[Rfam]
RNA sequence: ACAGCGUACUCUGGAGAGUCUCAUAGAACGGGCGCCGAAGGUGUACGGCAGCAGAUCUGCUGCUUAUCUCUCAGGCAAAAGGACAGAGAAAAGUCU
Numbered sequence: 001a002c003a004g005c006g007u008a009c010u011c012u013g014g015a016g017a018g019u020c021u022c023a024u025a026g027a028a029c030g031g032g033c034g035c036c037g038a039a040g041g042u043g044u045a046c047g048g049c050a051g052c053a054g055a056u057c058u059g060c061u062g063c064u065u066a067u068c069u070c071u072c073a074g075g076c077a078a079a080a081g082g083a084c085a086g087a088g089a090a091a092a093g094u095c096u
Stems, first nucleotide, its partner, number of pairs: 007090001009088005020032003034076003037072002041070001043068001047063001
The record is a 96-nucleotide RNA sequence from Firmicutes bacterium CAG:56, which matches "Glycine riboswitch aptamer" in Rfam.
This family represents the bacterial glycine riboswitch.
The source organism's lineage runs through Bacteria, Bacillati and Bacillota.